Description: This 94-nucleotide RNA from Bos taurus belongs to the Rfam family "Small nucleolar RNA SNORD91 family". The pairing is the family consensus, mapped onto this sequence. Rfam 15.1 lists 977 matches to the family in 495 species. On this family, see Huttenhofer et al., EMBO J 2001: "RNomics: an experimental approach that identifies 201 candidates for novel, small, non-messenger RNAs in mouse".
RNA sequence: CAGAGAAGUCAAUGAUGGUUUUACCUACAUGUCUGAACCUGUCUGAUGCACCUCAGUGAUGUCAUCUCUGUAUGGUUCUGAGACUUCUCUGACC
Numbered sequence: 001c002a003g004a005g006a007a008g009u010c011a012a013u014g015a016u017g018g019u020u021u022u023a024c025c026u027a028c029a030u031g032u033c034u035g036a037a038c039c040u041g042u043c044u045g046a047u048g049c050a051c052c053u054c055a056g057u058g059a060u061g062u063c064a065u066c067u068c069u070g071u072a073u074g075g076u077u078c079u080g081a082g083a084c085u086u087c088u089c090u091g092a093c094c
Stems, first nucleotide, its partner, number of pairs: 004088007